[Rfam]
RNA sequence: GAAUGUGAGGGCAAUCUGGCUGUGAUUUCUGUCACCCCAUUGAUCGCCAGGGUUGAUUUGGCUGAUCUGGCUGGCUAGGUAGGUGUCCCCUUGCUCCCUCCAAAUGCAUCCCUCGCAAAGCUGGGCUGUGUGCUUAGUCGAAGAGGACCACCACCCUCGCUAAAGGAGGAGGACCUCCUUCCGUCAGGGGUAUGGGAGUAGCUGCAUUCCCCUGCUAGAGCCUCCAGACAAGCUCUCAAGGUCCAUUUGUAGGGGAACAUACGGUAGUCAAGCUUCCAAGACUCCAGACACAGCGAAAUGAGGCACUGCAUAAGGCAGUCUGCCCUUCUGA
Numbered sequence: 001g002a003a004u005g006u007g008a009g010g011g012c013a014a015u016c017u018g019g020c021u022g023u024g025a026u027u028u029c030u031g032u033c034a035c036c037c038c039a040u041u042g043a044u045c046g047c048c049a050g051g052g053u054u055g056a057u058u059u060g061g062c063u064g065a066u067c068u069g070g071c072u073g074g075c076u077a078g079g080u081a082g083g084u085g086u087c088c089c090c091u092u093g094c095u096c097c098c099u100c101c102a103a104a105u106g107c108a109u110c111c112c113u114c115g116c117a118a119a120g121c122u123g124g125g126c127u128g129u130g131u132g133c134u135u136a137g138u139c140g141a142a143g144a145g146g147a148c149c150a151c152c153a154c155c156c157u158c159g160c161u162a163a164a165g166g167a168g169g170a171g172g173a174c175c176u177c178c179u180u181c182c183g184u185c186a187g188g189g190g191u192a193u194g195g196g197a198g199u200a201g202c203u204g205c206a207u208u209c210c211c212c213u214g215c216u217a218g219a220g221c222c223u224c225c226a227g228a229c230a231a232g233c234u235c236u237c238a239a240g241g242u243c244c245a246u247u248u249g250u251a252g253g254g255g256a257a258c259a260u261a262c263g264g265u266a267g268u269c270a271a272g273c274u275u276c277c278a279a280g281a282c283u284c285c286a287g288a289c290a291c292a293g294c295g296a297a298a299u300g301a302g303g304c305a306c307u308g309c310a311u312a313a314g315g316c317a318g319u320c321u322g323c324c325c326u327u328c329u330g331a
Stems, first nucleotide, its partner, number of pairs: 001101001003099001009098003014092001018090002024087003028083006035074002037070003042067004046062003109169002111166003117135002120133002139159002145156002201273003207267002210264002213261002222255004228250005298329001300326001302324003305319005
Dot-bracket structure: (.(.....(((..(...((....(((.((((((.(((((..(((((((...........))).)))))))..))...)))))).))).)).)...)))).).......(((((...((.((..........))))...((....((........)).))....))).))...............................(((...((.((.((.......((((..(((((.............))))).))))....)).)).))...)))........................(.(.((((((((.....)))))..))).)..)..
RNA: 7SK RNA